[Rfam]
This 360-nucleotide RNA sequence from Desulfovibrio sp. An276 belongs to the Rfam family "Bacterial RNase P class A".
RNA sequence: GGAGUGGGACGGAUCGUCGCUUGGGGGAGACCCCGAGAGGAAAGUCCGGGCUCCACAGGGCAGGACGCCGGGUAACACCCGGGAGGGGCGACCCUCUGACAGCGCCACAGAAAGCAAACCGCCCAGGUAUUGGGUAAGGGUGAAACGGUGGUGUAAGAGACCACCAGAUCCGGCAGCAAUGCCGGAUGCUCGGCAUACCACGUCCGGAGCAAGACCAAAUAGGGGAGGCGGCUUGCCCGGCCACAUGUCUCCCGGGUCGGUUGCUAGAGGGCACAGGCGACUGUGUCUCCAGAGGAAUGACGGUCCCGCGAUCCCUGACGGAUCGUACGACAAAACCCGGCUUACAGUUCCGCUCCGCCC
Numbered sequence: 001g002g003a004g005u006g007g008g009a010c011g012g013a014u015c016g017u018c019g020c021u022u023g024g025g026g027g028a029g030a031c032c033c034c035g036a037g038a039g040g041a042a043a044g045u046c047c048g049g050g051c052u053c054c055a056c057a058g059g060g061c062a063g064g065a066c067g068c069c070g071g072g073u074a075a076c077a078c079c080c081g082g083g084a085g086g087g088g089c090g091a092c093c094c095u096c097u098g099a100c101a102g103c104g105c106c107a108c109a110g111a112a113a114g115c116a117a118a119c120c121g122c123c124c125a126g127g128u129a130u131u132g133g134g135u136a137a138g139g140g141u142g143a144a145a146c147g148g149u150g151g152u153g154u155a156a157g158a159g160a161c162c163a164c165c166a167g168a169u170c171c172g173g174c175a176g177c178a179a180u181g182c183c184g185g186a187u188g189c190u191c192g193g194c195a196u197a198c199c200a201c202g203u204c205c206g207g208a209g210c211a212a213g214a215c216c217a218a219a220u221a222g223g224g225g226a227g228g229c230g231g232c233u234u235g236c237c238c239g240g241c242c243a244c245a246u247g248u249c250u251c252c253c254g255g256g257u258c259g260g261u262u263g264c265u266a267g268a269g270g271g272c273a274c275a276g277g278c279g280a281c282u283g284u285g286u287c288u289c290c291a292g293a294g295g296a297a298u299g300a301c302g303g304u305c306c307c308g309c310g311a312u313c314c315c316u317g318a319c320g321g322a323u324c325g326u327a328c329g330a331c332a333a334a335a336c337c338c339g340g341c342u343u344a345c346a347g348u349u350c351c352g353c354u355c356c357g358c359c360c
Stems, first nucleotide, its partner, number of pairs: 001356010011345001012305007020037007042343003046340005051209004058238004063205005068082005083096005097200002102198001104194003119139002121135006147165006167189001168187008213262004223253006230242004269288008
The organism belongs to Desulfovibrio, within Bacteria.